[Rfam]
Vault RNA: a 78-nucleotide RNA from Trichonephila clavata. The match comes from Rfam's covariance-model search (52 bits). The base pairs follow the family's consensus structure, which is taken from published work.

RNA sequence: GCGUAGGCUUAGUCGAGUGGUUACUUCGACUUUUUUAAUCGAUAUACUUAUUGACCACUGACGCUGUCCUACGUUUUG
Numbered sequence: 001g002c003g004u005a006g007g008c009u010u011a012g013u014c015g016a017g018u019g020g021u022u023a024c025u026u027c028g029a030c031u032u033u034u035u036u037a038a039u040c041g042a043u044a045u046a047c048u049u050a051u052u053g054a055c056c057a058c059u060g061a062c063g064c065u066g067u068c069c070u071a072c073g074u075u076u077u078g
Stems, first nucleotide, its partner, number of pairs: 002073006012062004017058004026054004